RNA sequence: CUAUAUGUACCCUGUAGAACCGAAUUUGUGUGAAAAGCAAACAAUCACAAAUACGUCUCUACAGGAAUACAUGGA
Numbered sequence: 001c002u003a004u005a006u007g008u009a010c011c012c013u014g015u016a017g018a019a020c021c022g023a024a025u026u027u028g029u030g031u032g033a034a035a036a037g038c039a040a041a042c043a044a045u046c047a048c049a050a051a052u053a054c055g056u057c058u059c060u061a062c063a064g065g066a067a068u069a070c071a072u073g074g075a
Stems, first nucleotide, its partner, number of pairs: 002073003006069002010065002016060003021055002024052007

The family of this 75-nucleotide RNA sequence from Chanos chanos is "mir-10 microRNA precursor family".
For this family Rfam cites "An extensive class of small RNAs in Caenorhabditis elegans" (Lee and Ambros, Science, 2001).
The family has 36 seed sequences and 3,853 matches in Rfam 15.1.